[Rfam]
RNA sequence: ACGACCUUACUUGAACAGGAUCUGUUCUAUAGGCUCGUACCUCUGUAUCUUUGAAUUCUAAAGAGACAGGAAACCAAGUCUGGGGGAAGAAUUAUGUCCGCUUGGCCAGAGCGUGAUUAAUAGCUCGGUGGCUCUGGUUUGGGUCAUAGGUGCGGUAGAGGAUCGUUCUCAGUCGGUAAACUCGGCUGGGAUGGUCAAGCGGAUGUCUGACAGACU
Numbered sequence: 001a002c003g004a005c006c007u008u009a010c011u012u013g014a015a016c017a018g019g020a021u022c023u024g025u026u027c028u029a030u031a032g033g034c035u036c037g038u039a040c041c042u043c044u045g046u047a048u049c050u051u052u053g054a055a056u057u058c059u060a061a062a063g064a065g066a067c068a069g070g071a072a073a074c075c076a077a078g079u080c081u082g083g084g085g086g087a088a089g090a091a092u093u094a095u096g097u098c099c100g101c102u103u104g105g106c107c108a109g110a111g112c113g114u115g116a117u118u119a120a121u122a123g124c125u126c127g128g129u130g131g132c133u134c135u136g137g138u139u140u141g142g143g144u145c146a147u148a149g150g151u152g153c154g155g156u157a158g159a160g161g162a163u164c165g166u167u168c169u170c171a172g173u174c175g176g177u178a179a180a181c182u183c184g185g186c187u188g189g190g191a192u193g194g195u196c197a198a199g200c201g202g203a204u205g206u207c208u209g210a211c212a213g214a215c216u
Stems, first nucleotide, its partner, number of pairs: 001038002003035001005033003013027006043069004048064006078215005097203012110167004120156002123153002126150001128147007169189008